Annotation
The family of this 212-nucleotide RNA sequence from Virgisporangium ochraceum is "Actinobacteria sRNA Ms_IGR-5". Rfam classes the family as a small RNA. NCBI's taxonomy places the organism under Bacteria, Actinomycetota, Actinomycetes, Micromonosporales, Virgisporangium. Pairs were carried over by alignment from the consensus structure.
RNA sequence: ACACGCGAAAGGAGGUGGUCCAAAGUUGUAUAGUUAUUGGACUCGUGAGGUGGCUGUCCACUAGCCCCCGUCCGUCCCACUUUUGCAGUAAUGGGCCGCACGGCGGCUUGUGAAACCACGACUGCUACCCGACCCCCGGGGUGCCGGCUAGUCCAGCCGGCCCGCUCGAACGGACGUUCCGUUCCGGCGGCCAGCCCCGGGGGUUGUCCAUU
Number, nucleotide and partner (000 for none) at each position: 001a000002c000003a000004c000005g000006c000007g000008a000009a000010a000011g000012g000013a000014g058015g057016u056017g055018g054019u053020c000021c000022a000023a000024a000025g000026u000027u000028g000029u000030a000031u000032a000033g000034u000035u000036a000037u000038u000039g000040g000041a000042c000043u000044c000045g000046u000047g000048a000049g000050g000051u000052g000053g019054c018055u017056g016057u015058c014059c112060a111061c110062u000063a108064g107065c106066c000067c000068c103069c102070g101071u000072c000073c098074g097075u000076c000077c000078c000079a000080c000081u000082u000083u000084u000085g000086c000087a000088g000089u000090a000091a000092u000093g000094g000095g000096c000097c074098g073099c000100a000101c070102g069103g068104c000105g000106g065107c064108u063109u000110g061111u060112g059113a000114a000115a000116c000117c000118a000119c000120g000121a000122c000123u000124g000125c000126u000127a000128c000129c000130c206131g205132a204133c203134c202135c201136c200137c199138g198139g197140g196141g195142u194143g161144c160145c159146g158147g157148c156149u000150a000151g000152u000153c000154c000155a000156g148157c147158c146159g145160g144161c143162c000163c000164g000165c000166u000167c000168g000169a000170a000171c000172g000173g000174a000175c000176g000177u000178u000179c000180c000181g000182u000183u000184c000185c000186g000187g000188c000189g000190g000191c000192c000193a000194g142195c141196c140197c139198c138199g137200g136201g135202g134203g133204u132205u131206g130207u000208c000209c000210a000211u000212u000